[Rfam]
Shown here is a 113-nucleotide RNA from Pelagibacterium halotolerans, a member of the family "Glycine riboswitch aptamer". Lineage of the source: Bacteria > Alphaproteobacteria > Hyphomicrobiales > Pelagibacterium > Pelagibacterium halotolerans. Pairs were carried over by alignment from the consensus structure. A search with the family's covariance model found it, with a score of 38 bits.
Nucleotides: 113
Base pairs, nucleotide, nucleotide: 009105010104011103012102013101020035021034022033023032037093038092039091040089041088045087047085051080052079
Number, partner (000 for none) and nucleotide at each position: 001000c002000g003000c004000c005000a006000g007000a008000a009105c010104u011103c012102u013101g014000g015000a016000a017000a018000g019000c020035g021034g022033a023032a024000g025000c026000g027000u028000c029000a030000g031000c032023u033022u034021c035020c036000c037093a038092c039091c040089g041088a042000c043000g044000g045087g046000u047085g048000u049000a050000g051080c052079c053000g054000g055000g056000u057000c058000u059000u060000g061000u062000g063000g064000c065000a066000a067000g068000c069000a070000a071000g072000c073000c074000g075000c076000c077000c078000g079052g080051g081000a082000a083000a084000u085047c086000u087045c088041u089040c090000a091039g092038g093037u094000u095000g096000a097000c098000c099000g100000a101013c102012a103011g104010a105009g106000g107000g108000g109000g110000c111000a112000c113000u